[Rfam]
RNA sequence: CGAACAGCCAGCGCGAAGAAGCGCUGACGAAGACUACAUAUCUAGACCGUGUGAAGCCGUGCAGGGAAUCGGCUCGACGGCGACGCGUUGCGUCUGAAGGACCGGGACGGUGGCUAAAAAUUGCAAGCCCUGCAACCAGUGUGGCUGGAUUCUAGCAGCGUUUUAUAGAUCGUCAAUACUAUAGAACGCACAAUGCAUAACCAAAAGUAA
Numbered sequence: 001c002g003a004a005c006a007g008c009c010a011g012c013g014c015g016a017a018g019a020a021g022c023g024c025u026g027a028c029g030a031a032g033a034c035u036a037c038a039u040a041u042c043u044a045g046a047c048c049g050u051g052u053g054a055a056g057c058c059g060u061g062c063a064g065g066g067a068a069u070c071g072g073c074u075c076g077a078c079g080g081c082g083a084c085g086c087g088u089u090g091c092g093u094c095u096g097a098a099g100g101a102c103c104g105g106g107a108c109g110g111u112g113g114c115u116a117a118a119a120a121u122u123g124c125a126a127g128c129c130c131u132g133c134a135a136c137c138a139g140u141g142u143g144g145c146u147g148g149a150u151u152c153u154a155g156c157a158g159c160g161u162u163u164u165a166u167a168g169a170u171c172g173u174c175a176a177u178a179c180u181a182u183a184g185a186a187c188g189c190a191c192a193a194u195g196c197a198u199a200a201c202c203a204a205a206a207g208u209a210a
Base pairs, nucleotide, nucleotide: 009026010025011024012023013022014021047113048112049111050110055074056073057072058071059070082094083093084092085091086090140178141177142176146172147171148170151169152168153167154166

A member of the RNA family "Burkholderia sRNA Bp1_Cand738_SIPHT" from Paraburkholderia dinghuensis, 210 nucleotides long. A reference for the family is Khoo et al. (2012), "Computational discovery and RT-PCR validation of novel Burkholderia conserved and Burkholderia pseudomallei unique sRNAs", BMC Genomics. It scores 159 bits against the family's covariance model.